Shown here is a 329-nucleotide sequence from Leptothrix cholodnii, a member of the family "Bacterial RNase P class A". Lineage of the source: Bacteria > Pseudomonadati > Betaproteobacteria > Leptothrix > Leptothrix cholodnii. Rfam classes the family as a ribozyme.
RNA sequence: GAAGCAAGCCAGACCGCCGCUGGUGCCGGAUCCGAAAGGUGGCACUGGAGGAAGGUCCGGACUGCACAGAGCAGCGUAGGAGGUAACACCUCUCCACCGCGAGGUGCGGAUCAGAGCAACAGAGACGAGCCGGUUCAGUCCGGGUGAAACGGGCAAUCUCUACGCGCAGCAACACCAAAUAGGCCAGCAUUGAAGCGGCUCGCUGAGCUGGCGGGUAGGUGGCAUCGAGCCGGGUGGGCGACCCCCGGCCCAGAGGAAUGGCGGUCACGGCGGGGGGUCUUUCGGGAUCGUCUGCUGCACAGAAUCCGGCCUAUCGGCUUGCUUCACAC
Number, nucleotide and partner (000 for none) at each position: 001g325002a324003a323004g322005c321006a320007a319008g318009c317010c316011a314012g266013a265014c264015c263016g262017c261018c260019g000020c048021u047022g046023g045024u044025g043026c042027c041028g040029g000030a000031u000032c000033c000034g000035a000036a000037a000038g000039g000040u028041g027042g026043c025044a024045c023046u022047g021048g020049a000050g000051g000052a000053a312054g311055g310056u000057c309058c308059g307060g306061a305062c169063u168064g167065c166066a000067c000068a000069g201070a200071g199072c198073a000074g165075c164076g163077u162078a161079g093080g092081a091082g090083g089084u000085a000086a000087c000088a000089c083090c082091u081092c080093u079094c108095c106096a105097c104098c103099g000100c000101g000102a000103g098104g097105u096106g095107c000108g094109g160110a159111u000112c000113a000114g158115a157116g154117c153118a000119a000120c000121a000122g000123a000124g000125a000126c000127g000128a000129g000130c143131c142132g141133g140134u000135u000136c000137a000138g000139u000140c133141c132142g131143g130144g000145u000146g000147a000148a000149a000150c000151g000152g000153g117154c116155a000156a000157u115158c114159u110160c109161u078162a077163c076164g075165c074166g065167c064168a063169g062170c000171a000172a000173c221174a220175c219176c218177a000178a000179a000180u000181a000182g000183g212184c211185c210186a209187g208188c207189a000190u000191u000192g000193a000194a204195g203196c202197g000198g072199c071200u070201c069202g196203c195204u194205g000206a000207g188208c187209u186210g185211g184212c183213g000214g000215g000216u000217a000218g176219g175220u174221g173222g000223c000224a000225u000226c000227g000228a000229g249230c248231c247232g246233g245234g244235u000236g243237g242238g000239c000240g000241a000242c237243c236244c234245c233246c232247g231248g230249c229250c000251c000252a000253g000254a000255g000256g000257a000258a000259u000260g018261g017262c016263g015264g014265u013266c012267a000268c000269g000270g000271c000272g000273g000274g000275g000276g000277g000278u000279c000280u000281u000282u000283c000284g000285g000286g000287a000288u000289c000290g000291u000292c000293u000294g000295c000296u000297g000298c000299a000300c000301a000302g000303a000304a000305u061306c060307c059308g058309g057310c055311c054312u053313a000314u011315c000316g010317g009318c008319u007320u006321g005322c004323u003324u002325c001326a000327c000328a000329c000

Rfam's curators put it in the seed alignment.